[Rfam]
RNA sequence: AAGGCGAUCGGAUCGACCGACCGGGUCACCAGCAGGUAGUCGCGAAUGGCGGUGCUGUGGCGGUUCUC
Dot-bracket structure: ....((.(..(.(.((((.....))))).)....((((.((((.....))))))))..).))......
Numbered sequence: 001a002a003g004g005c006g007a008u009c010g011g012a013u014c015g016a017c018c019g020a021c022c023g024g025g026u027c028a029c030c031a032g033c034a035g036g037u038a039g040u041c042g043c044g045a046a047u048g049g050c051g052g053u054g055c056u057g058u059g060g061c062g063g064u065u066c067u068c
Stems, first nucleotide, its partner, number of pairs: 005062002008059001011030001013028001015027004035056004040052004